[Rfam]
RNA sequence: AGCUUUCUGAAUUCGCGCGGAGAUUUCGUCACACACCAACCCAUUAGGGCUGAUCAGACUUCCAAGAUAAGUUAAGUU
Numbered sequence: 001a002g003c004u005u006u007c008u009g010a011a012u013u014c015g016c017g018c019g020g021a022g023a024u025u026u027c028g029u030c031a032c033a034c035a036c037c038a039a040c041c042c043a044u045u046a047g048g049g050c051u052g053a054u055c056a057g058a059c060u061u062c063c064a065a066g067a068u069a070a071g072u073u074a075a076g077u078u
Stems, first nucleotide, its partner, number of pairs: 002077004008071001011068003017063001019062004024058003028054003
Rfam assigns this 78-nucleotide RNA sequence from Schistosoma bovis to the family "mir-3492 microRNA precursor family". The base pairs follow the family's consensus structure, which was predicted with RNAalifold. NCBI's taxonomy places the organism under Eukaryota, Digenea, Strigeidida, Schistosomatoidea, Schistosoma. The family has 2 seed sequences and 21,496 matches in Rfam 15.1.